[Rfam]
RNA sequence: GUGACCGCGGUUCGUAACCAUCCCGCGACAACAAAACUAGGAGGAG
Numbered sequence: 001g002u003g004a005c006c007g008c009g010g011u012u013c014g015u016a017a018c019c020a021u022c023c024c025g026c027g028a029c030a031a032c033a034a035a036a037c038u039a040g041g042a043g044g045a046g
Stems, first nucleotide, its partner, number of pairs: 006027005015039002
RNA: PreQ1 (pre queuosine) riboswitch aptamer